[Rfam]
RNA: 6S / SsrS RNA
RNA sequence: AAGAUCCUGAAAUGUACGUGUAGCCUAUAUAUUCAACCUACAUAACUAAUCCGGGAUUGCUAACAGAGAAAAUGAUAUCAGGCUAUAAAGGUAGCUACCUUUUCCUAGGGACAUUAGAAGAUAAAGAAUUUUCUUGAGGCGAACCCACCUGCUGAGGCAGGUAUGGAUCCAUAGGUGAACGGCAUGUCGGGAAACUU
Numbered sequence: 001a002a003g004a005u006c007c008u009g010a011a012a013u014g015u016a017c018g019u020g021u022a023g024c025c026u027a028u029a030u031a032u033u034c035a036a037c038c039u040a041c042a043u044a045a046c047u048a049a050u051c052c053g054g055g056a057u058u059g060c061u062a063a064c065a066g067a068g069a070a071a072a073u074g075a076u077a078u079c080a081g082g083c084u085a086u087a088a089a090g091g092u093a094g095c096u097a098c099c100u101u102u103u104c105c106u107a108g109g110g111a112c113a114u115u116a117g118a119a120g121a122u123a124a125a126g127a128a129u130u131u132u133c134u135u136g137a138g139g140c141g142a143a144c145c146c147a148c149c150u151g152c153u154g155a156g157g158c159a160g161g162u163a164u165g166g167a168u169c170c171a172u173a174g175g176u177g178a179a180c181g182g183c184a185u186g187u188c189g190g191g192a193a194a195c196u197u
Base pairs, nucleotide, nucleotide: 005192006191007190008189009188010187012185013184014183015182017181018180019179031168033166034165035164036162037161038160053146054145055144057142058141059140060139061138064136066135067134068133069132070131071130072129078121079120083117084116085115